[Rfam]
RNA sequence: CAAGCACAUUCACAGGUCCUCCCCAGGUUGUGGGGCCAGGAUUUGGUAGCUGGUGCUAAAAGAAAAUCCAUAAUUACAUCCUUGCCCUGGGACUGUGCCAGUGGCAACUGCCACUUAGUGGAACACAA
Numbered sequence: 001c002a003a004g005c006a007c008a009u010u011c012a013c014a015g016g017u018c019c020u021c022c023c024c025a026g027g028u029u030g031u032g033g034g035g036c037c038a039g040g041a042u043u044u045g046g047u048a049g050c051u052g053g054u055g056c057u058a059a060a061a062g063a064a065a066a067u068c069c070a071u072a073a074u075u076a077c078a079u080c081c082u083u084g085c086c087c088u089g090g091g092a093c094u095g096u097g098c099c100a101g102u103g104g105c106a107a108c109u110g111c112c113a114c115u116u117a118g119u120g121g122a123a124c125a126c127a128a
Stems, first nucleotide, its partner, number of pairs: 003057005013045003017041004021035004067122003071117003075113001079110001082107005087101004
RNA: Small nucleolar RNA SNORA30/SNORA37 family
Organism: Erinaceus europaeus